A member of the RNA family "Burkholderia sRNA 54" from Paraburkholderia sp. DHOC27, 77 nucleotides long. From the family's description: Identified by RNA-seq, RACE and Northern blot. A reference for the family is Sass et al. (2017), "Identification of small RNAs abundant in Burkholderia cenocepacia biofilms reveal putative regulators with a potential role in carbon and iron metabolism", Sci Rep. Gene Ontology term of the family: bacterial biofilm matrix. Lineage of the source: Bacteria > Pseudomonadota > Betaproteobacteria > Burkholderiaceae > Paraburkholderia. The family's RNA type in Rfam is small RNA. A search with the family's covariance model found it, with a score of 57 bits.
Nucleotides: 077
Base pairs, nucleotide, nucleotide: 010044011043012042013041014040015039016038017037018036019035024030025029049070050069051068052067053066054065055064056063
Number, partner (000 for none) and nucleotide at each position: 001000g002000g003000c004000c005000c006000u007000c008000u009000c010044a011043g012042g013041u014040u015039c016038u017037g018036g019035c020000g021000a022000g023000g024030c025029c026000c027000u028000c029025g030024g031000a032000a033000u034000a035019g036018c037017c038016a039015g040014a041013a042012u043011c044010u045000u046000u047000u048000c049070a050069g051068c052067c053066g054065a055064c056063c057000c058000u059000a060000a061000c062000c063056g064055g065054u066053c067052g068051g069050c070049u071000u072000u073000u074000u075000u076000u077000u